[Rfam]
RNA sequence: UGUUCAUGCCCUCCUUGGGCGUUUCCUCCCUAGACUCAGACCGCGUCGUGUCAACGAUGCGGUCUUUUUUUCGUAUGC
Numbered sequence: 001u002g003u004u005c006a007u008g009c010c011c012u013c014c015u016u017g018g019g020c021g022u023u024u025c026c027u028c029c030c031u032a033g034a035c036u037c038a039g040a041c042c043g044c045g046u047c048g049u050g051u052c053a054a055c056g057a058u059g060c061g062g063u064c065u066u067u068u069u070u071u072c073g074u075a076u077g078c
Stems, first nucleotide, its partner, number of pairs: 008020004040063009
Makes More Granules Regulator RNA (mmgR): a 78-nucleotide sequence from Tianweitania sediminis. The family's RNA type in Rfam is small RNA. The match comes from Rfam's covariance-model search (63 bits).